[Rfam]
RNA sequence: UGUAAGCAUGCAGCGUGCGCUGGCAGAGUGCCGAGCGAACGCAGUCGUCUUUACCGAAACGCACCACGCCAAUCAUCUCAUCCUCUUCGAAGCGCGCUAACGCAUCGGCCAGACCAGAUUUGACGUUAGACGGCAAGUCACACUGUGUGAUAUCGCCGUUGACGAUAACCGUCACGUUUUCGCCUAAGCGUGUC
Number, nucleotide and partner (000 for none) at each position: 001u000002g054003u053004a052005a051006g050007c000008a048009u000010g000011c000012a000013g000014c041015g040016u039017g000018c037019g036020c000021u000022g000023g000024c000025a000026g000027a000028g000029u000030g000031c000032c000033g000034a000035g000036c019037g018038a000039a016040c015041g014042c000043a000044g000045u000046c000047g000048u008049c000050u006051u005052u004053a003054c002055c000056g000057a000058a000059a000060c000061g078062c000063a076064c000065c000066a073067c000068g000069c000070c000071a000072a000073u066074c000075a000076u063077c000078u061079c000080a000081u000082c000083c112084u111085c000086u000087u108088c107089g000090a000091a000092g000093c102094g101095c000096g000097c000098u000099a000100a000101c094102g093103c000104a000105u000106c000107g088108g087109c000110c000111a084112g083113a193114c192115c000116a000117g189118a000119u188120u187121u186122g185123a000124c000125g134126u133127u132128a000129g000130a000131c000132g127133g126134c125135a000136a000137g166138u165139c164140a000141c000142a000143c000144u158145g157146u000147g000148u000149g000150a000151u000152a000153u000154c000155g000156c000157c145158g144159u000160u000161g000162a000163c000164g139165a138166u137167a000168a000169c000170c000171g183172u182173c000174a180175c000176g000177u000178u000179u000180u174181c000182g172183c171184c000185u122186a121187a120188g119189c117190g000191u000192g114193u113194c000
Rfam assigns this 194-nucleotide RNA from Pantoea vagans to the family "Yersinia sRNA 251". The base pairs follow the family's consensus structure, which was predicted with RNAfold. On this family, see Nuss et al., PLoS Genet 2015: "Transcriptomic profiling of Yersinia pseudotuberculosis reveals reprogramming of the Crp regulon by temperature and uncovers Crp as a master regulator of small RNAs". It is annotated as an antisense RNA. Lineage of the source: Bacteria > Pseudomonadota > Enterobacterales > Erwiniaceae > Pantoea.